[Rfam]
RNA: Metazoan signal recognition particle RNA
RNA sequence: GCCGGGCACGGUGGCGCGCGCCUGUAAUCCCAGCUCCUCCGGGAGGCUGAGGUCGGCGGAUCGUGGAUGCUCGGGGGUUCGGGACUAAGGCGCUGUGUGGAGCGGGCGUCCGCACCAGGCAUGGCACCAACAUGGGGCUCCUGGGGGAGCCCGGGGGCACCAGGUUGUCUAAGGAGGGGGGGACCCGGCCCAGGUCGGAAACGGAGCAGGUCAAACUCCCCGUGCUGGGCGGCGGUGGGAUCGCGCCUGCGAGCAGUGUCCUCAGUUCCGCCCGAGACGUCCGACGAGACCCGGUCUCUU
Numbered sequence: 001g002c003c004g005g006g007c008a009c010g011g012u013g014g015c016g017c018g019c020g021c022c023u024g025u026a027a028u029c030c031c032a033g034c035u036c037c038u039c040c041g042g043g044a045g046g047c048u049g050a051g052g053u054c055g056g057c058g059g060a061u062c063g064u065g066g067a068u069g070c071u072c073g074g075g076g077g078u079u080c081g082g083g084a085c086u087a088a089g090g091c092g093c094u095g096u097g098u099g100g101a102g103c104g105g106g107c108g109u110c111c112g113c114a115c116c117a118g119g120c121a122u123g124g125c126a127c128c129a130a131c132a133u134g135g136g137g138c139u140c141c142u143g144g145g146g147g148a149g150c151c152c153g154g155g156g157g158c159a160c161c162a163g164g165u166u167g168u169c170u171a172a173g174g175a176g177g178g179g180g181g182g183a184c185c186c187g188g189c190c191c192a193g194g195u196c197g198g199a200a201a202c203g204g205a206g207c208a209g210g211u212c213a214a215a216c217u218c219c220c221c222g223u224g225c226u227g228g229g230c231g232g233c234g235g236u237g238g239g240a241u242c243g244c245g246c247c248u249g250c251g252a253g254c255a256g257u258g259u260c261c262u263c264a265g266u267u268c269c270g271c272c273c274g275a276g277a278c279g280u281c282c283g284a285c286g287a288g289a290c291c292c293g294g295u296c297u298c299u300u
Base pairs, nucleotide, nucleotide: 001047002046003045004023005022006021007020009018010017028044029043030042049298050297051296052295053294054293055292056291061287062286063285064284066282070276071275072274073273074272075271080270081269082268083267084266085265086264088262089261090260092257093256094255095254096253098251102250103249104248105247106246107245108244109243110239111238113237114236115235116234119230120229122227123226124225125224126223127222128167129166130165131164133162134161135160137158138157139156140155141154142153143152144151145150168174169173176220177219178218179217180216187212188211189210190209195204196203197202